Rfam assigns this 154-nucleotide RNA sequence from Micromonospora lupini to the family "c-di-AMP riboswitch aptamer (ydaO/yuaA leader)".
RNA sequence: CGCCAAAUCCUGCCCCCGGUCGUCGGAAACAGAACCCGGGCAGGAGCGGGGGACCCAACGUUCCUCGGUGCAUGUCACCUCGGGGUGAAGCCGCCACCGCGCGGCCGGGCUCCUCGGCCCGAACCCGACAGCUCACCUCGCCGGCGUGGAGGAA
Numbered sequence: 001c002g003c004c005a006a007a008u009c010c011u012g013c014c015c016c017c018g019g020u021c022g023u024c025g026g027a028a029a030c031a032g033a034a035c036c037c038g039g040g041c042a043g044g045a046g047c048g049g050g051g052g053a054c055c056c057a058a059c060g061u062u063c064c065u066c067g068g069u070g071c072a073u074g075u076c077a078c079c080u081c082g083g084g085g086u087g088a089a090g091c092c093g094c095c096a097c098c099g100c101g102c103g104g105c106c107g108g109g110c111u112c113c114u115c116g117g118c119c120c121g122a123a124c125c126c127g128a129c130a131g132c133u134c135a136c137c138u139c140g141c142c143g144g145c146g147u148g149g150a151g152g153a154a
Stems, first nucleotide, its partner, number of pairs: 001146004008045008046141006056082001083126003091104004107120004
It scores 57 bits against the family's covariance model.